RNA sequence: AUAACGUCAGUUGCAGUGACAACUAUGUUAU
Numbered sequence: 001a002u003a004a005c006g007u008c009a010g011u012u013g014c015a016g017u018g019a020c021a022a023c024u025a026u027g028u029u030a031u
Stems, first nucleotide, its partner, number of pairs: 001031007009024005014018001